Notes
ctRNA: an 84-nucleotide RNA sequence. On this family, see Venkova-Canova et al., J Bacteriol 2003: "Control of rep gene expression in plasmid pGA1 from Corynebacterium glutamicum". The match comes from Rfam's covariance-model search (54 bits). Rolling circle replication plasmids contain a number of mechanisms to maintain a low copy number. One of these methods is to transcribe a small RNA called ctRNA (for counter-transcribed RNA) than is transcribed on the opposite strand to RepB the replication initiation protein. ctRNA binds to the mRNA of repB and causes translational inhibition.
RNA sequence: GCUUUCUCCCAGGUGCUCUCUGGGUGAUAAGCGAAGCCCGUCAGGUGUUGGUAGCCCCUGGCGGGCUUCAUUCAUUUAUGGGGU
Numbered sequence: 001g002c003u004u005u006c007u008c009c010c011a012g013g014u015g016c017u018c019u020c021u022g023g024g025u026g027a028u029a030a031g032c033g034a035a036g037c038c039c040g041u042c043a044g045g046u047g048u049u050g051g052u053a054g055c056c057c058c059u060g061g062c063g064g065g066c067u068u069c070a071u072u073c074a075u076u077u078a079u080g081g082g083g084u
Stems, first nucleotide, its partner, number of pairs: 001032003006026001008024005034068012047056001